[Rfam]
RNA sequence: AGAAAAGCAGGAUGUUGUUCUCUAUAUAAGCAUUGUCCUCGUAAACUUCAGGAAUAUCAGAGUGAGUCAUUGUUCUUGGGUGAAUCAAUUGACACAGCUUGAUGUUAAUUGGUUCAGUAAAUGAUGACACAAUU
Numbered sequence: 001a002g003a004a005a006a007g008c009a010g011g012a013u014g015u016u017g018u019u020c021u022c023u024a025u026a027u028a029a030g031c032a033u034u035g036u037c038c039u040c041g042u043a044a045a046c047u048u049c050a051g052g053a054a055u056a057u058c059a060g061a062g063u064g065a066g067u068c069a070u071u072g073u074u075c076u077u078g079g080g081u082g083a084a085u086c087a088a089u090u091g092a093c094a095c096a097g098c099u100u101g102a103u104g105u106u107a108a109u110u111g112g113u114u115c116a117g118u119a120a121a122u123g124a125u126g127a128c129a130c131a132a133u134u
Stems, first nucleotide, its partner, number of pairs: 005048003011037002014034001016032002066128009081116007
Dot-bracket structure: ....(((...((.(.((.............)).).))........))).................(((((((((......(((((((......................)))))))...)))))))))......
This 134-nucleotide RNA from Oryza sativa belongs to the Rfam family "Small nucleolar RNA snoR74". On this family, see Marker et al., Curr Biol 2002: "Experimental RNomics: identification of 140 candidates for small non-messenger RNAs in the plant Arabidopsis thaliana". It is annotated as an H/ACA-box small nucleolar RNA. Its family is annotated with nucleolus and RNA processing in the Gene Ontology. The organism belongs to Oryza sativa, within Eukaryota.